[Rfam]
RNA sequence: GGGCAUUCAGAAGGCUUGCAAUCUGGGCUACAUGCGGAGAACCUGGUUUCUCUCUCUCGCCCAGGGGAAAGUCCCCGGACCCGUGGCAGAAAGUGUCCCUGGUUGAAACCAGUCACGGCCCACGCUGUACCGUUCAUAAGCUGAGACGUUCACUUGAAUUGAGCUUGGUGAUCGUGGGCCGGCUUUGUCAGCGUUGAUAGUAAUGCAAGCAGUUACUAACGCGGAAACAGAACGGGGCUCAUUCUCGGAAUGCA
Numbered sequence: 001g002g003g004c005a006u007u008c009a010g011a012a013g014g015c016u017u018g019c020a021a022u023c024u025g026g027g028c029u030a031c032a033u034g035c036g037g038a039g040a041a042c043c044u045g046g047u048u049u050c051u052c053u054c055u056c057u058c059g060c061c062c063a064g065g066g067g068a069a070a071g072u073c074c075c076c077g078g079a080c081c082c083g084u085g086g087c088a089g090a091a092a093g094u095g096u097c098c099c100u101g102g103u104u105g106a107a108a109c110c111a112g113u114c115a116c117g118g119c120c121c122a123c124g125c126u127g128u129a130c131c132g133u134u135c136a137u138a139a140g141c142u143g144a145g146a147c148g149u150u151c152a153c154u155u156g157a158a159u160u161g162a163g164c165u166u167g168g169u170g171a172u173c174g175u176g177g178g179c180c181g182g183c184u185u186u187g188u189c190a191g192c193g194u195u196g197a198u199a200g201u202a203a204u205g206c207a208a209g210c211a212g213u214u215a216c217u218a219a220c221g222c223g224g225a226a227a228c229a230g231a232a233c234g235g236g237g238c239u240c241a242u243u244c245u246c247g248g249a250a251u252g253c254a
Base pairs, nucleotide, nucleotide: 003253004252005251006250007249008248010246011245014210015209016208017207018206019205022065023064024063025062026061027060028059037052038051039050040049041048070239071238073237074236075235076234085097086096087095088094099112100111101110102109103108116181117180119177120176128170129169130168138166139165140164141163148159149158150157151156216224
RNA: RNase MRP
Organism: Sander lucioperca